The record is a 119-nucleotide RNA sequence from Gottschalkia purinilytica, which matches "Molybdenum/Tungsten riboswitch aptamer (Moco RNA motif)" in Rfam. The family has 160 seed sequences and 1,248 matches in Rfam 15.1. A reference for the family is Weinberg et al. (2007), "Identification of 22 candidate structured RNAs in bacteria using the CMfinder comparative genomics pipeline", Nucleic Acids Res.
RNA sequence: UUGAAUAAAAUCUUCCGAGUCUUAUAUACCUAAAGGUUUUUCCUAUGGUAUAAGACCAAUGGGUACAUGUAGAAAUGUAUGUGCCUCCCGAAUUGGAAAGGAAUGUGUUUAGCAUGGUU
Number, nucleotide and partner (000 for none) at each position: 001u000002u000003g113004a000005a000006u000007a000008a000009a000010a000011u105012c000013u103014u102015c101016c100017g000018a000019g056020u055021c054022u053023u052024a051025u050026a000027u000028a049029c048030c047031u000032a000033a000034a044035g043036g042037u000038u000039u000040u000041u000042c036043c035044u034045a000046u000047g030048g029049u028050a025051u024052a023053a022054g021055a020056c019057c000058a000059a000060u000061g086062g085063g084064u083065a082066c081067a080068u079069g078070u077071a076072g000073a000074a000075a000076u071077g070078u069079a068080u067081g066082u065083g064084c063085c062086u061087c096088c095089c000090g000091a000092a000093u000094u000095g088096g087097a000098a000099a000100g016101g015102a014103a013104u000105g011106u000107g000108u000109u000110u000111a000112g000113c003114a000115u000116g000117g000118u000119u000
The source organism's lineage runs through Bacteria, Bacillati, Tissierellia, Tissierellales and Gottschalkia. The family's consensus secondary structure is taken from published work.